RNA sequence: ACAAUUUUCGGCUGUGGAUUGGGCUAGUACUGUGAUUUUAGCAUUAAGUAUUGCACAUUCCCCAGCCUGAAAGUGU
Numbered sequence: 001a002c003a004a005u006u007u008u009c010g011g012c013u014g015u016g017g018a019u020u021g022g023g024c025u026a027g028u029a030c031u032g033u034g035a036u037u038u039u040a041g042c043a044u045u046a047a048g049u050a051u052u053g054c055a056c057a058u059u060c061c062c063c064a065g066c067c068u069g070a071a072a073g074u075g076u
Stems, first nucleotide, its partner, number of pairs: 001076003005072003010067002013064002016061002020057002023054001025053007
Background:
The family of this 76-nucleotide RNA from Drosophila yakuba is "mir-310 microRNA precursor family". The sequence is in the family's curated seed alignment.